[Rfam]
RNA sequence: CCCGCGACAGGACGGAAAGACCCCGUGGAGCUUUACUGUAACUUGAUACUGAGGUUGGGUGUUACAUGUACAGGAUAGGAGGGAGGCAGUGAAGUCAGUACGCCAGUAUUGAUGGAGCCAACGUUGGGAUACCUCUCUUGUAAUACUUAACUUCUAACCAUAGUCCGUUAUCCGGAUUUGGGACAAUGUCAGGUGGACAGUUUGACUGGGGCGGUCGCCUCCGAAAGAGUAACGGAGGCGCUCAAAGGUAACCUCAGAAUGGUCGGAAACCAUUCGAAGAGUGCAAAGGCAUAAGGUUGCUUGACUGUGACAUCGACGGAUGAAGCAGGUACGAAAGUAGGACUUAGUGAUCCGGUGGUAUGAAAGUGGGAUUGCCAUCGCUCAACGGAUAAAAGCUACCCCGGGGAUAACAGGCUUAUCUCCCCCAAGAGUUCACAUCGACGGGGAGGUUUGGCACCUCGAUGUCGGCUCAUCGCAUCCUGGAGCUGUAGCAGGUUCCAAGGGUUGGGCUGUUCGCCCAUUAAAGCGGUACGCGAGCUGGGUUCAGAACGUCGUGAGACAGUUCGGUCCCUAUCCGUCGUGGGCGUA
Numbered sequence: 001c002c003c004g005c006g007a008c009a010g011g012a013c014g015g016a017a018a019g020a021c022c023c024c025g026u027g028g029a030g031c032u033u034u035a036c037u038g039u040a041a042c043u044u045g046a047u048a049c050u051g052a053g054g055u056u057g058g059g060u061g062u063u064a065c066a067u068g069u070a071c072a073g074g075a076u077a078g079g080a081g082g083g084a085g086g087c088a089g090u091g092a093a094g095u096c097a098g099u100a101c102g103c104c105a106g107u108a109u110u111g112a113u114g115g116a117g118c119c120a121a122c123g124u125u126g127g128g129a130u131a132c133c134u135c136u137c138u139u140g141u142a143a144u145a146c147u148u149a150a151c152u153u154c155u156a157a158c159c160a161u162a163g164u165c166c167g168u169u170a171u172c173c174g175g176a177u178u179u180g181g182g183a184c185a186a187u188g189u190c191a192g193g194u195g196g197a198c199a200g201u202u203u204g205a206c207u208g209g210g211g212c213g214g215u216c217g218c219c220u221c222c223g224a225a226a227g228a229g230u231a232a233c234g235g236a237g238g239c240g241c242u243c244a245a246a247g248g249u250a251a252c253c254u255c256a257g258a259a260u261g262g263u264c265g266g267a268a269a270c271c272a273u274u275c276g277a278a279g280a281g282u283g284c285a286a287a288g289g290c291a292u293a294a295g296g297u298u299g300c301u302u303g304a305c306u307g308u309g310a311c312a313u314c315g316a317c318g319g320a321u322g323a324a325g326c327a328g329g330u331a332c333g334a335a336a337g338u339a340g341g342a343c344u345u346a347g348u349g350a351u352c353c354g355g356u357g358g359u360a361u362g363a364a365a366g367u368g369g370g371a372u373u374g375c376c377a378u379c380g381c382u383c384a385a386c387g388g389a390u391a392a393a394a395g396c397u398a399c400c401c402c403g404g405g406g407a408u409a410a411c412a413g414g415c416u417u418a419u420c421u422c423c424c425c426c427a428a429g430a431g432u433u434c435a436c437a438u439c440g441a442c443g444g445g446g447a448g449g450u451u452u453g454g455c456a457c458c459u460c461g462a463u464g465u466c467g468g469c470u471c472a473u474c475g476c477a478u479c480c481u482g483g484a485g486c487u488g489u490a491g492c493a494g495g496u497u498c499c500a501a502g503g504g505u506u507g508g509g510c511u512g513u514u515c516g517c518c519c520a521u522u523a524a525a526g527c528g529g530u531a532c533g534c535g536a537g538c539u540g541g542g543u544u545c546a547g548a549a550c551g552u553c554g555u556g557a558g559a560c561a562g563u564u565c566g567g568u569c570c571c572u573a574u575c576c577g578u579c580g581u582g583g584g585c586g587u588a
Stems, first nucleotide, its partner, number of pairs: 001584008010576003014571002022405004027401002029397005035201004042193007051154016068137001078136005085119003094113008158181003162178006204216004217239006240386001242342002248300006254280002257275006281290002305328004311322003330339003353380007362373002414455003418452001419449007429439002466541001467539004471533001472530005479504002482499006506520005547565004551560003

Bacterial large subunit ribosomal RNA: a 588-nucleotide part of an RNA from Candidatus Epulonipiscium viviparus.
The family's consensus secondary structure is taken from published work.
Rfam's curators put it in the seed alignment.